[Rfam]
RNA sequence: UAGCAUUCUGAAGACCUGCCUACGAGGCUGCUAACUGAGAACUUGGUUUCUCGCGUAUGUGCCUUGGGGAAAGUCCCCGGACAUGUGUCUGAGACGGCCUUGGAUGAUAGCAAGAAGCGGGUUUGCAAAUGCUACUUGAAGCUAAGACGUUCUCAGAACUGAGCAUGGCGCGAGCAAAUUGCAUUCGUCAAUGUACUAGUAACGCAGGUGGUGUAGAUGCAUUAACCGAAUGGGGCUCAUUCUCAGGAUGCU
Numbered sequence: 001u002a003g004c005a006u007u008c009u010g011a012a013g014a015c016c017u018g019c020c021u022a023c024g025a026g027g028c029u030g031c032u033a034a035c036u037g038a039g040a041a042c043u044u045g046g047u048u049u050c051u052c053g054c055g056u057a058u059g060u061g062c063c064u065u066g067g068g069g070a071a072a073g074u075c076c077c078c079g080g081a082c083a084u085g086u087g088u089c090u091g092a093g094a095c096g097g098c099c100u101u102g103g104a105u106g107a108u109a110g111c112a113a114g115a116a117g118c119g120g121g122u123u124u125g126c127a128a129a130u131g132c133u134a135c136u137u138g139a140a141g142c143u144a145a146g147a148c149g150u151u152c153u154c155a156g157a158a159c160u161g162a163g164c165a166u167g168g169c170g171c172g173a174g175c176a177a178a179u180u181g182c183a184u185u186c187g188u189c190a191a192u193g194u195a196c197u198a199g200u201a202a203c204g205c206a207g208g209u210g211g212u213g214u215a216g217a218u219g220c221a222u223u224a225a226c227c228g229a230a231u232g233g234g235g236c237u238c239a240u241u242c243u244c245a246g247g248a249u250g251c252u
Stems, first nucleotide, its partner, number of pairs: 002252010014209006023066006037052005072237002075235004087099001089097002100115002105110001117182003122178005131171002139166001141164002149159004211222004
Source information: The record is a 252-nucleotide RNA sequence from Albula goreensis, which matches "RNase MRP" in Rfam. It scores 134 bits against the family's covariance model. RNase MRP is an enzymatically active ribonucleoprotein with two distinct roles in eukaryotes. The family's RNA type in Rfam is ribozyme.